RNA sequence: UAAGCGGAAUCCGAAAAGCUAGUAGAGUAGGAA
Numbered sequence: 001u002a003a004g005c006g007g008a009a010u011c012c013g014a015a016a017a018g019c020u021a022g023u024a025g026a027g028u029a030g031g032a033a
Base pairs, nucleotide, nucleotide: 003020004019005018010032011031012030
RNA: DUF805b RNA